[Rfam]
Rfam assigns this 132-nucleotide sequence from Marmota marmota to the family "U11 spliceosomal RNA". Pairs were carried over by alignment from the consensus structure, which is taken from published work. NCBI's taxonomy places the organism under Eukaryota, Opisthokonta, Tetrapoda, Xerinae, Marmota marmota. Its family is annotated with U11 snRNP, pre-mRNA 5'-splice site binding and mRNA 5'-splice site recognition in the Gene Ontology.
RNA sequence: AAAAAGGGUCUCUGUCCUUAGUGGCACACAUAGGGCAACUCAAUUGUUUUUCAUGUGGAAUCCUCUAAAAAGUUUUCAGAGGUAUAAUUCUUUAGUUAUUUAGCAUCUGAUGAUUAUUGGCCUAGCACCCUU
Numbered sequence: 001a002a003a004a005a006g007g008g009u010c011u012c013u014g015u016c017c018u019u020a021g022u023g024g025c026a027c028a029c030a031u032a033g034g035g036c037a038a039c040u041c042a043a044u045u046g047u048u049u050u051u052c053a054u055g056u057g058g059a060a061u062c063c064u065c066u067a068a069a070a071a072g073u074u075u076u077c078a079g080a081g082g083u084a085u086a087a088u089u090c091u092u093u094a095g096u097u098a099u100u101u102a103g104c105a106u107c108u109g110a111u112g113a114u115u116a117u118u119g120g121c122c123u124a125g126c127a128c129c130c131u132u
Stems, first nucleotide, its partner, number of pairs: 008083005013026004027055002032050007056078005062072001103128001107125003112122001114120002